Shown here is a 305-nucleotide RNA sequence from Lathyrus oleraceus, a member of the family "Plant signal recognition particle RNA". Pairs were carried over by alignment from the consensus structure, which is taken from published work. NCBI's taxonomy places the organism under Eukaryota, Embryophyta, Euphyllophyta, Hologalegina, Lathyrus. The match comes from Rfam's covariance-model search (136 bits).
RNA sequence: GACGAUCUGAGUAGCGCCAGCUUGUGACCCAUGUGGGGGCACCAAGGUGAUGGAACAUGGCUAAAGAUUAACAAGGUUGGUCUGGUGGCUGCGCCAUGCUGGCCUUCCCACUCUAAGUUGCGAGUUGACCCAUGGGAUUUGUGCUAAGGCACAGGUCAUAUGGGUCUUAGACAGGAGGGUAUUAUAGCGUGAGGCUGGUUUCAUAGAGUAGCGAAUACUUCUUACUCCUGACAGUGGGGAGGGAUCGCGGGCAAACAGAUUCAAGCCACACUUUCUACACUUGAAGAUGCUAAAUUCUGGUUUUG
Numbered sequence: 001g002a003c004g005a006u007c008u009g010a011g012u013a014g015c016g017c018c019a020g021c022u023u024g025u026g027a028c029c030c031a032u033g034u035g036g037g038g039g040c041a042c043c044a045a046g047g048u049g050a051u052g053g054a055a056c057a058u059g060g061c062u063a064a065a066g067a068u069u070a071a072c073a074a075g076g077u078u079g080g081u082c083u084g085g086u087g088g089c090u091g092c093g094c095c096a097u098g099c100u101g102g103c104c105u106u107c108c109c110a111c112u113c114u115a116a117g118u119u120g121c122g123a124g125u126u127g128a129c130c131c132a133u134g135g136g137a138u139u140u141g142u143g144c145u146a147a148g149g150c151a152c153a154g155g156u157c158a159u160a161u162g163g164g165u166c167u168u169a170g171a172c173a174g175g176a177g178g179g180u181a182u183u184a185u186a187g188c189g190u191g192a193g194g195c196u197g198g199u200u201u202c203a204u205a206g207a208g209u210a211g212c213g214a215a216u217a218c219u220u221c222u223u224a225c226u227c228c229u230g231a232c233a234g235u236g237g238g239g240a241g242g243g244a245u246c247g248c249g250g251g252c253a254a255a256c257a258g259a260u261u262c263a264a265g266c267c268a269c270a271c272u273u274u275c276u277a278c279a280c281u282u283g284a285a286g287a288u289g290c291u292a293a294a295u296u297c298u299g300g301u302u303u304u305g
Stems, first nucleotide, its partner, number of pairs: 001040001003038001004023002007020003028037003043305006050298001052296002057291001058289002062284001064282003068279001071276001073274005078268004083263003087260001089258003100254001102252004107247001108243002111241003114236002117232004122227004127166008136157009173223006188213003195206003
Record summary
Its Rfam clan is "SRP clan".